[Rfam]
Rfam assigns this 57-nucleotide RNA from Wenjunlia vitaminophila to the family "L17-Actino-Proteobacteria ribosomal protein leader". The family's RNA type in Rfam is cis-regulatory leader. Lineage of the source: Bacteria > Bacillati > Actinomycetota > Streptomycetaceae > Wenjunlia vitaminophila.
RNA sequence: CGGCGGGGCAACCCCGCCCCGCCGAACUGACACCGGUACCUGACACGGCCGGUGCAG
Numbered sequence: 001c002g003g004c005g006g007g008g009c010a011a012c013c014c015c016g017c018c019c020c021g022c023c024g025a026a027c028u029g030a031c032a033c034c035g036g037u038a039c040c041u042g043a044c045a046c047g048g049c050c051g052g053u054g055c056a057g
Stems, first nucleotide, its partner, number of pairs: 001024009027057003031054007
The literature on the family includes a 2020 paper in BMC Microbiol by Eckert and Weinberg, "Discovery of 20 novel ribosomal leader candidates in bacteria and archaea".